[Rfam]
RNA sequence: GCAAUAGUGGCUUAUACGUGGGCGGUCGGCGCCAUCCCUUAAAUAGAAAGGGGGUGACGCCAAUGGAGACGUUUCAAGCUCUUCAAUUAAUGUUCCUAUUCGGAAUGUUUAUUCUAGCGCUUCUAACGUUUAUAAAAAAAUAGACCGCCCACCGUGCAAAGGUUAAGUGCGAUCUAUUCGUAAAAACCCUAUAAGCCGACCGCCUAGUAGCGCGGCUAUUGCUGACCGUGGACGUUAGCGCGUCUGCG
Numbered sequence: 001g002c003a004a005u006a007g008u009g010g011c012u013u014a015u016a017c018g019u020g021g022g023c024g025g026u027c028g029g030c031g032c033c034a035u036c037c038c039u040u041a042a043a044u045a046g047a048a049a050g051g052g053g054g055u056g057a058c059g060c061c062a063a064u065g066g067a068g069a070c071g072u073u074u075c076a077a078g079c080u081c082u083u084c085a086a087u088u089a090a091u092g093u094u095c096c097u098a099u100u101c102g103g104a105a106u107g108u109u110u111a112u113u114c115u116a117g118c119g120c121u122u123c124u125a126a127c128g129u130u131u132a133u134a135a136a137a138a139a140a141u142a143g144a145c146c147g148c149c150c151a152c153c154g155u156g157c158a159a160a161g162g163u164u165a166a167g168u169g170c171g172a173u174c175u176a177u178u179c180g181u182a183a184a185a186a187c188c189c190u191a192u193a194a195g196c197c198g199a200c201c202g203c204c205u206a207g208u209a210g211c212g213c214g215g216c217u218a219u220u221g222c223u224g225a226c227c228g229u230g231g232a233c234g235u236u237a238g239c240g241c242g243u244c245u246g247c248g
Base pairs, nucleotide, nucleotide: 001222002221003220004219005218007216008198009197010196011195012194013193015156016155017154018153019151020150021149022148025145026144027143033056034055036053037052038051039050040049065124066123067122068121070119071118078093079092103115105113200215201214202213203212227248228247229246230245231244232243233242234241235240